RNA sequence: GGCAGUUCUCGGUUGAUGCACUCCAUAAUUGGGCUCCCUCCUCUCUGGUUCCGCGUGCGUCACCUGAGAACUGGA
Numbered sequence: 001g002g003c004a005g006u007u008c009u010c011g012g013u014u015g016a017u018g019c020a021c022u023c024c025a026u027a028a029u030u031g032g033g034c035u036c037c038c039u040c041c042u043c044u045c046u047g048g049u050u051c052c053g054c055g056u057g058c059g060u061c062a063c064c065u066g067a068g069a070a071c072u073g074g075a
Stems, first nucleotide, its partner, number of pairs: 003073001005071008014062004019057003023053001027050007
About this RNA:
A member of the RNA family "mir-9223 microRNA precursor family" from Myotis lucifugus, 75 nucleotides long. NCBI's taxonomy places the organism under Eukaryota, Bilateria, Boreoeutheria, Chiroptera, Myotis. A search with the family's covariance model found it, with a score of 59 bits. The family's consensus secondary structure was predicted with RNAalifold.